[Rfam]
Annotation: Shown here is a 68-nucleotide sequence from Nocardioides euryhalodurans, a member of the family "ASdes TB sRNA". Taxonomically the source falls in Nocardioides (Bacteria, Bacillati, Actinomycetota, Propionibacteriales). The base pairs follow the family's consensus structure, which is taken from published work. The family has 26 seed sequences and 1,192 matches in Rfam 15.1. The literature on the family includes a 2009 paper in Mol Microbiol by Arnvig and Young, "Identification of small RNAs in Mycobacterium tuberculosis".
RNA sequence: AGCUCGUCGGGGUCGACCCCGCGGGUCACGAGCAGGUAGUCACGGAUGCAGAAGGCGUGGCGGCCCUC
Numbered sequence: 001a002g003c004u005c006g007u008c009g010g011g012g013u014c015g016a017c018c019c020c021g022c023g024g025g026u027c028a029c030g031a032g033c034a035g036g037u038a039g040u041c042a043c044g045g046a047u048g049c050a051g052a053a054g055g056c057g058u059g060g061c062g063g064c065c066c067u068c
Stems, first nucleotide, its partner, number of pairs: 004063003008059002012029002015027004035056001037054001040052002